[Rfam]
RNA: transfer-messenger RNA
RNA sequence: GGGGGCGACAUGGCUUCGACGUGGGUAGCGAAACCUUGAGUGCAUGCCGAGGACUGUACACCUCGUAAAUCCUACAGAAAAAAAGUAUUCGCAAACGACGAAAACUACUCAGUGGCUUUAGCAGCUUAAAACCUGCACCACUUCUCUGACUGGCUGUGCUUAUGCGGCCAGAGUUUGAUGCAACCUUCGGGGUGCAAAGGACGCUCAGGGAUCAUCUUACAUAAGAUCGCGCCAGGACUUUGUUCGGAGUCUAAAGCGCUAAACCCAAUCGAAAUCGCUGGUGGUUUUCUUGGCCCGACGGGUAGCCAUCAGCUAAAUCAAAGCGCGGGAUAAGCAUGUAGACCUUGUGGCGGAGUGCUUGCGGACGGGGGUUCAAUUCCCCCCGCCUCCACCA
Numbered sequence: 001g002g003g004g005g006c007g008a009c010a011u012g013g014c015u016u017c018g019a020c021g022u023g024g025g026u027a028g029c030g031a032a033a034c035c036u037u038g039a040g041u042g043c044a045u046g047c048c049g050a051g052g053a054c055u056g057u058a059c060a061c062c063u064c065g066u067a068a069a070u071c072c073u074a075c076a077g078a079a080a081a082a083a084a085g086u087a088u089u090c091g092c093a094a095a096c097g098a099c100g101a102a103a104a105c106u107a108c109u110c111a112g113u114g115g116c117u118u119u120a121g122c123a124g125c126u127u128a129a130a131a132c133c134u135g136c137a138c139c140a141c142u143u144c145u146c147u148g149a150c151u152g153g154c155u156g157u158g159c160u161u162a163u164g165c166g167g168c169c170a171g172a173g174u175u176u177g178a179u180g181c182a183a184c185c186u187u188c189g190g191g192g193u194g195c196a197a198a199g200g201a202c203g204c205u206c207a208g209g210g211a212u213c214a215u216c217u218u219a220c221a222u223a224a225g226a227u228c229g230c231g232c233c234a235g236g237a238c239u240u241u242g243u244u245c246g247g248a249g250u251c252u253a254a255a256g257c258g259c260u261a262a263a264c265c266c267a268a269u270c271g272a273a274a275u276c277g278c279u280g281g282u283g284g285u286u287u288u289c290u291u292g293g294c295c296c297g298a299c300g301g302g303u304a305g306c307c308a309u310c311a312g313c314u315a316a317a318u319c320a321a322a323g324c325g326c327g328g329g330a331u332a333a334g335c336a337u338g339u340a341g342a343c344c345u346u347g348u349g350g351c352g353g354a355g356u357g358c359u360u361g362c363g364g365a366c367g368g369g370g371g372u373u374c375a376a377u378u379c380c381c382c383c384c385g386c387c388u389c390c391a392c393c394a
Base pairs, nucleotide, nucleotide: 001390002389003388004387005386006385007384020363021362022361023360024359025358026357027356034350035349037347038346039345040344043338044337045336046335047334048065049064050063051062052061054077055076056075057074058073117140121136122135123134124133143211144210145209146208147207148206150171151170152169153168154167155166156165159225160224161223162222163221164220229259230258231257232256243273244272245271246270277313278312279311280310281309282308283307284306285305286304288302289301290300294329295328299323367383368382369381370380371379